[Rfam]
RNA sequence: GCAGUCGAAAAUCACUCGAGGUCUCUUGUGGCCCCUGGUGAGAUAACUGUGCCGACAGUAUAGGGAACAUUAAGCUUAUUCCCCACAGUACCUUGUGGGGAGUGAAACCCAUGUUCCUAUAACU
Dot-bracket structure: ...((.(.(..((((....((((......))))....))))..)..).)).............(.(((((.....(((((...(((........)))...))))).....))))).).......